[Rfam]
RNA sequence: AAAGUCCCGGUCGGGUAAGGGCUAGCCAUCCGCCCAUAUCGAGUGUUAGUCCUGCUGCGGAGCUUUGUGCCCUGCGAAAAAAAUUUGCCGGGCAAGCGUACAUAGAGAAUCCUGUAGGCCGCAGGGUAGAUCGCGCUCCCUGAAGUGCGCCUGUUCGGAUCAGGGCAGCUUCGAGAAACGUAACCCGCGGAUGGCGACAGUGUUGACGAGCUGGAAGCCCACAUGAAGCGCGCGUUUUGGUCAGCGCGUGGAUGUCCGCCAGAGUCUCGGAUGU
Numbered sequence: 001a002a003a004g005u006c007c008c009g010g011u012c013g014g015g016u017a018a019g020g021g022c023u024a025g026c027c028a029u030c031c032g033c034c035c036a037u038a039u040c041g042a043g044u045g046u047u048a049g050u051c052c053u054g055c056u057g058c059g060g061a062g063c064u065u066u067g068u069g070c071c072c073u074g075c076g077a078a079a080a081a082a083a084u085u086u087g088c089c090g091g092g093c094a095a096g097c098g099u100a101c102a103u104a105g106a107g108a109a110u111c112c113u114g115u116a117g118g119c120c121g122c123a124g125g126g127u128a129g130a131u132c133g134c135g136c137u138c139c140c141u142g143a144a145g146u147g148c149g150c151c152u153g154u155u156c157g158g159a160u161c162a163g164g165g166c167a168g169c170u171u172c173g174a175g176a177a178a179c180g181u182a183a184c185c186c187g188c189g190g191a192u193g194g195c196g197a198c199a200g201u202g203u204u205g206a207c208g209a210g211c212u213g214g215a216a217g218c219c220c221a222c223a224u225g226a227a228g229c230g231c232g233c234g235u236u237u238u239g240g241u242c243a244g245c246g247c248g249u250g251g252a253u254g255u256c257c258g259c260c261a262g263a264g265u266c267u268c269g270g271a272u273g274u
Stems, first nucleotide, its partner, number of pairs: 013035003019031003023243001025241002039106002043103004047098001049093004054088002165268001168265004173260001187259006193219003198213004228249006
Description
A member of the RNA family "Group II catalytic intron D1-D4-6" from Thiohalocapsa sp. PB-PSB1, 274 nucleotides long. A reference for the family is Chu et al. (2001), "Control of branch-site choice by a group II intron", EMBO J. Gene Ontology term of the family: Group II intron splicing. Rfam's curators write: Group II introns are found in rRNA, tRNA and mRNA of organelles in fungi, plants and protists, and also in mRNA in bacteria.